This 179-nucleotide sequence from Halobacillus andaensis belongs to the Rfam family "Lysine riboswitch aptamer".
About the family: Riboswitches are metabolite binding domains within certain messenger RNAs that serve as precision sensors for their corresponding targets.
RNA sequence: AGAGAGGAUAGAGGUGCGAAGACCAUCAGUACACAAUGUGAGGACUAUGAGGUCCCUGGAUCAUUGUGAAAAGGGGUAUUUGCCGAAGCGGAAAGAAACUCAUAUUCUUGAUGCUGGUUCUGCUAUUGAACAAAUACAGGACUGUCAUAUAGGAAACUAUAUGGAGGGCUAUCUUUGCA
Dot-bracket structure: .....((((((....(((((.(((.......(((((((.......................)))))))......))).)))))...((((..(((((.......)))))..))))(((((((.((((.....))))))))))).(((((((......)))))))....)))))).....
The family has 47 seed sequences and 3,224 matches in Rfam 15.1.